[Rfam]
RNA sequence: CUACGUUUGUCUACACUCUGGAUCUCAGCCAGAGUCUGGUGUUUUGUUCGCAUGUGGGAAGCUUCCGCAAGUACACAUGGGGACGAUAUUCGCAUCAGACUCUAUUAUUCUUCUGUGUUGAGCUCCAAUUUUAAUAGCAAACAAAAUCAACCGUGUCAACUACUCACCAAGAUACAUCUCAUCGAACGUUCGAUUUCAAAAUCUUUCGCUCAUAAUGAUUAUAUUGGUCCAUUUUCACUGACACACAU
Numbered sequence: 001c002u003a004c005g006u007u008u009g010u011c012u013a014c015a016c017u018c019u020g021g022a023u024c025u026c027a028g029c030c031a032g033a034g035u036c037u038g039g040u041g042u043u044u045u046g047u048u049c050g051c052a053u054g055u056g057g058g059a060a061g062c063u064u065c066c067g068c069a070a071g072u073a074c075a076c077a078u079g080g081g082g083a084c085g086a087u088a089u090u091c092g093c094a095u096c097a098g099a100c101u102c103u104a105u106u107a108u109u110c111u112u113c114u115g116u117g118u119u120g121a122g123c124u125c126c127a128a129u130u131u132u133a134a135u136a137g138c139a140a141a142c143a144a145a146a147u148c149a150a151c152c153g154u155g156u157c158a159a160c161u162a163c164u165c166a167c168c169a170a171g172a173u174a175c176a177u178c179u180c181a182u183c184g185a186a187c188g189u190u191c192g193a194u195u196u197c198a199a200a201a202u203c204u205u206u207c208g209c210u211c212a213u214a215a216u217g218a219u220u221a222u223a224u225u226g227g228u229c230c231a232u233u234u235u236c237a238c239u240g241a242c243a244c245a246c247a248u
Base pairs, nucleotide, nucleotide: 007140008139009138019127020126021125022124024122026120027119028118029117031103032102033101034100035099036098037097038096039095040094041093042092154243155242156241157240167227168226169225170224172222173221174220176219177218178217

The family of this 248-nucleotide sequence from Lachancea lanzarotensis is "Small nucleolar RNA snR80". It scores 90 bits against the family's covariance model. By type it is an H/ACA-box small nucleolar RNA. On this family, see Schattner et al., Nucleic Acids Res 2004: "Genome-wide searching for pseudouridylation guide snoRNAs: analysis of the Saccharomyces cerevisiae genome". Clan: SNORA28 clan. Lineage of the source: Eukaryota > Dikarya > Saccharomycetes > Saccharomycetales > Lachancea.